A member of the RNA family "Flavo-1 RNA" from Flavobacterium enshiense, 98 nucleotides long. Taxonomically the source falls in Flavobacterium enshiense (Bacteria, Pseudomonadati, Bacteroidota, Flavobacterium).
RNA sequence: UGUCAGUUCUGCGUGAGGGAUGGGAGCGGCAUCCUUUUUAUUGGGGUUGUUCUCAAAACAACCUCAAUAAAAAGAUAGAGCGGAUAGCCCGACCCUUG
Number, nucleotide and partner (000 for none) at each position: 001u000002g000003u000004c000005a000006g000007u000008u000009c000010u000011g000012c000013g000014u000015g000016a000017g090018g089019g088020a000021u086022g085023g000024g000025a000026g081027c080028g000029g000030c000031a076032u075033c074034c000035u000036u000037u071038u070039u069040a068041u067042u066043g065044g064045g063046g062047u061048u060049g059050u058051u057052c000053u000054c000055a000056a000057a051058a050059c049060a048061a047062c046063c045064u044065c043066a042067a041068u040069a039070a038071a037072a000073a000074g033075a032076u031077a000078g000079a000080g027081c026082g000083g000084a000085u022086a021087g000088c019089c018090c017091g000092a000093c000094c000095c000096u000097u000098g000
It is annotated as a small RNA.